[Rfam]
RNA sequence: CGUCGCCCGCUCCACGGAGGUCAAGGCUUCCAUGGCUGAGCGAUUUAUCAAUCUGGUCGUGCCGCUGCCCCACAAGGGCACCGCCAUGCGCAAUGAGGAUACCGGCCGCCAGUGUGCGGAGAGGUCCAGCGCCGUUUCUCCGCUGAUCGGCGAUGGCCUUCAGCAGAGCGACGUAGAUAGCACGAUACUUCC
Numbered sequence: 001c002g003u004c005g006c007c008c009g010c011u012c013c014a015c016g017g018a019g020g021u022c023a024a025g026g027c028u029u030c031c032a033u034g035g036c037u038g039a040g041c042g043a044u045u046u047a048u049c050a051a052u053c054u055g056g057u058c059g060u061g062c063c064g065c066u067g068c069c070c071c072a073c074a075a076g077g078g079c080a081c082c083g084c085c086a087u088g089c090g091c092a093a094u095g096a097g098g099a100u101a102c103c104g105g106c107c108g109c110c111a112g113u114g115u116g117c118g119g120a121g122a123g124g125u126c127c128a129g130c131g132c133c134g135u136u137u138c139u140c141c142g143c144u145g146a147u148c149g150g151c152g153a154u155g156g157c158c159u160u161c162a163g164c165a166g167a168g169c170g171a172c173g174u175a176g177a178u179a180g181c182a183c184g185a186u187a188c189u190u191c192c
Stems, first nucleotide, its partner, number of pairs: 004042003012035003016031006057185006063083002066080005088132004097127003102124002106119004135171002138168003142164005149158003
RNA: RT-15 RNA
Organism: Burkholderia cenocepacia